[Rfam]
RNA sequence: GGAUGUGAGGGCGAUCUGCUUGCGACAUCUGUCACCCCAUUGAUCGCCAGGGUUGAUUCGGCUGAUCUGGCUGGCUAGGCGGGUGUCCCCUUCCUCCCUCACCACUCCAUGUGCGUCCCUCCCGAAGCUGCGCGCUCGGCCAAAGAGGACGACCAUCUCCGAUAGAGGAGGACCGGUCUUUGGUCAAGGGUAUACGAGUAGCUGUGCUCCCCUGCUAGAACCUCCAAACAAGCUCUCAAGAAUCCACCUAUAAUGCAGGAAACACAGGAGACACAGAUUCAAUCCCUGGGUCAGGAACAUU
Numbered sequence: 001g002g003a004u005g006u007g008a009g010g011g012c013g014a015u016c017u018g019c020u021u022g023c024g025a026c027a028u029c030u031g032u033c034a035c036c037c038c039a040u041u042g043a044u045c046g047c048c049a050g051g052g053u054u055g056a057u058u059c060g061g062c063u064g065a066u067c068u069g070g071c072u073g074g075c076u077a078g079g080c081g082g083g084u085g086u087c088c089c090c091u092u093c094c095u096c097c098c099u100c101a102c103c104a105c106u107c108c109a110u111g112u113g114c115g116u117c118c119c120u121c122c123c124g125a126a127g128c129u130g131c132g133c134g135c136u137c138g139g140c141c142a143a144a145g146a147g148g149a150c151g152a153c154c155a156u157c158u159c160c161g162a163u164a165g166a167g168g169a170g171g172a173c174c175g176g177u178c179u180u181u182g183g184u185c186a187a188g189g190g191u192a193u194a195c196g197a198g199u200a201g202c203u204g205u206g207c208u209c210c211c212c213u214g215c216u217a218g219a220a221c222c223u224c225c226a227a228a229c230a231a232g233c234u235c236u237c238a239a240g241a242a243u244c245c246a247c248c249u250a251u252a253a254u255g256c257a258g259g260a261a262a263c264a265c266a267g268g269a270g271a272c273a274c275a276g277a278u279u280c281a282a283u284c285c286c287u288g289g290g291u292c293a294g295g296a297a298c299a300u301u
Stems, first nucleotide, its partner, number of pairs: 001108003005102007013093002018090001024087010035074002037070003042067004046062003116171002118168004122139004127135002141161001147158003202267002208262001211259005223250001232247001

The family of this 301-nucleotide RNA sequence from Cervus elaphus is "7SK RNA". The base pairs follow the family's consensus structure, which is taken from published work. Taxonomically the source falls in Cervus elaphus (Eukaryota, Eumetazoa, Teleostomi, Cervidae). The family has 45 seed sequences and 49,373 matches in Rfam 15.1. The match comes from Rfam's covariance-model search (266 bits). On this family, see Blencowe, Curr Biol 2002: "Transcription: surprising role for an elusive small nuclear RNA".